[Rfam]
RNA sequence: UUUUUUAAGGAAAUUUUGGCCUUCCAACAAGGGAAGGCCGAGGAAUUUUCCU
Numbered sequence: 001u002u003u004u005u006u007a008a009g010g011a012a013a014u015u016u017u018g019g020c021c022u023u024c025c026a027a028c029a030a031g032g033g034a035a036g037g038c039c040g041a042g043g044a045a046u047u048u049u050c051c052u
Base pairs, nucleotide, nucleotide: 008052009051010050011049012048013047015042016041017040018039019038020037021036022035023034024033025032
Annotation
HIV Ribosomal frameshift signal: a 52-nucleotide RNA sequence from Lentivirus humimdef1. Rfam's curators put it in the seed alignment. The base pairs follow the family's consensus structure, which is taken from published work. For this family Rfam cites "The human immunodeficiency virus type 1 ribosomal frameshifting site is an invariant sequence determinant and an important target for antiviral therapy" (Biswas et al., J Virol, 2004). This family represents the HIV Ribosomal frameshift signal. HIV uses a system called -1 ribosomal frameshifting to produce the required ratio of Gag and Gag-Pol polyproteins. The stem-loop structure of the frameshift signal is thought to impede the ribosome and cause slippage in the 5' direction, this causes the -1 frameshift and translation then continues in the new frame. It is annotated as a frameshift element.